[Rfam]
RNA sequence: GGCCUAAAGCGCCCGUAGCCGGCCCGGUGUGUCUCCCGUCAAAUCCGCCGGCUCAACCGGCGGACCGCGGGGGAUACUAUCGGGCUAGGGGGCGGGAGAGGUCGGGGGUACUCCCGGGGUAGGGGUAAAAUCCUCUGAUCCCGGGAAGACCACCGGUGGCGAAGGCGUCCGGCCAGAACGCGCCCGACGGUGAGGGGCGAAAGCUGGGGGAGCGAACCGGAUUAGAUACCCGGGUAGUCCCAGCUGUAAACGAUGCGGGCUAGGUGCUGGAGGGGCUACGGGCCCCUCCAGUGCCGCAGGGAAGCCGUUAAGCCCGCCGCCUGGGGAGUACGGCCGCAAGGCUGAAACUUAAAGGAAU
Numbered sequence: 001g002g003c004c005u006a007a008a009g010c011g012c013c014c015g016u017a018g019c020c021g022g023c024c025c026g027g028u029g030u031g032u033c034u035c036c037c038g039u040c041a042a043a044u045c046c047g048c049c050g051g052c053u054c055a056a057c058c059g060g061c062g063g064a065c066c067g068c069g070g071g072g073g074a075u076a077c078u079a080u081c082g083g084g085c086u087a088g089g090g091g092g093c094g095g096g097a098g099a100g101g102u103c104g105g106g107g108g109u110a111c112u113c114c115c116g117g118g119g120u121a122g123g124g125g126u127a128a129a130a131u132c133c134u135c136u137g138a139u140c141c142c143g144g145g146a147a148g149a150c151c152a153c154c155g156g157u158g159g160c161g162a163a164g165g166c167g168u169c170c171g172g173c174c175a176g177a178a179c180g181c182g183c184c185c186g187a188c189g190g191u192g193a194g195g196g197g198c199g200a201a202a203g204c205u206g207g208g209g210g211a212g213c214g215a216a217c218c219g220g221a222u223u224a225g226a227u228a229c230c231c232g233g234g235u236a237g238u239c240c241c242a243g244c245u246g247u248a249a250a251c252g253a254u255g256c257g258g259g260c261u262a263g264g265u266g267c268u269g270g271a272g273g274g275g276c277u278a279c280g281g282g283c284c285c286c287u288c289c290a291g292u293g294c295c296g297c298a299g300g301g302a303a304g305c306c307g308u309u310a311a312g313c314c315c316g317c318c319g320c321c322u323g324g325g326g327a328g329u330a331c332g333g334c335c336g337c338a339a340g341g342c343u344g345a346a347a348c349u350u351a352a353a354g355g356a357a358u
Stems, first nucleotide, its partner, number of pairs: 001321003009318001011198004016192001018191003022085007031077001032074008045063007089185003092181003100174007107151002112146007122133003159166002203244006212238002217233004255317006263295014299306002323350003332343004
RNA: Archaeal small subunit ribosomal RNA, nucleotides 530 to 887